Rfam assigns this 59-nucleotide RNA from Culex theileri flavivirus RP-2011 to the family "Insect-Specific Flavivirus 3' UTR repeats Ra". The organism belongs to Orthoflavivirus, within Viruses. 3' UTR in insect specific flavivirus families present three to four repeats of conserved element Ra. A reference for the family is Ochsenreiter et al. (2019), "Functional RNA Structures in the 3'UTR of Tick-Borne, Insect-Specific and No-Known-Vector Flaviviruses", Viruses.

RNA sequence: GCUAGCGCAAGGAAGGAAAGUUGCAGACUACCUUGGGUGUUGACGACACUCCGCCCCCA
Numbered sequence: 001g002c003u004a005g006c007g008c009a010a011g012g013a014a015g016g017a018a019a020g021u022u023g024c025a026g027a028c029u030a031c032c033u034u035g036g037g038u039g040u041u042g043a044c045g046a047c048a049c050u051c052c053g054c055c056c057c058c059a
Stems, first nucleotide, its partner, number of pairs: 005054003013034004018029001035051006